[Rfam]
RNA sequence: UAAUCGAAAUGGCACACUUAUUGAAAGAUAAGGUCGCAAAGCCACGGGCCUAAGGCAAUGAGCUAGGGUAGCCGGGCUGCCGAA
Numbered sequence: 001u002a003a004u005c006g007a008a009a010u011g012g013c014a015c016a017c018u019u020a021u022u023g024a025a026a027g028a029u030a031a032g033g034u035c036g037c038a039a040a041g042c043c044a045c046g047g048g049c050c051u052a053a054g055g056c057a058a059u060g061a062g063c064u065a066g067g068g069u070a071g072c073c074g075g076g077c078u079g080c081c082g083a084a
Stems, first nucleotide, its partner, number of pairs: 012037002017032006040078004045074003048069003055063002
Shown here is an 84-nucleotide sequence from Sporolactobacillus inulinus, a member of the family "c-di-GMP-I riboswitch aptamer". Rfam's curators write: GEMM was predicted in a large-scale screen for bacterial structured RNA regulatory elements. The organism belongs to Sporolactobacillus inulinus, within Bacteria.